[Rfam]
RNA sequence: GUGGAAGAAUUUUGGCAAGAGUCCAUCCAUGGAUCUUGAGAAAGAACAAGAUAACUUAGAGGGAGGAAUAGAGGAGCUUGAAAGUUUUGUCAAGCUUUGUUCUCCCUAAUCUUUAUCAGUUUGUUCGUGUUACAGUUAUCUGUACCUGGUAACUGAAGCAUGGCAAGCCGGCAAGUCAUCCAAAAGGCGGUAUUGGAAACCAAUUUCUCUU
Numbered sequence: 001g002u003g004g005a006a007g008a009a010u011u012u013u014g015g016c017a018a019g020a021g022u023c024c025a026u027c028c029a030u031g032g033a034u035c036u037u038g039a040g041a042a043a044g045a046a047c048a049a050g051a052u053a054a055c056u057u058a059g060a061g062g063g064a065g066g067a068a069u070a071g072a073g074g075a076g077c078u079u080g081a082a083a084g085u086u087u088u089g090u091c092a093a094g095c096u097u098u099g100u101u102c103u104c105c106c107u108a109a110u111c112u113u114u115a116u117c118a119g120u121u122u123g124u125u126c127g128u129g130u131u132a133c134a135g136u137u138a139u140c141u142g143u144a145c146c147u148g149g150u151a152a153c154u155g156a157a158g159c160a161u162g163g164c165a166a167g168c169c170g171g172c173a174a175g176u177c178a179u180c181c182a183a184a185a186g187g188c189g190g191u192a193u194u195g196g197a198a199a200c201c202a203a204u205u206u207c208u209c210u211u
Stems, first nucleotide, its partner, number of pairs: 058107002119168006137158001139156001196209002
RNA: Early nodulin 40
Organism: Asparagus officinalis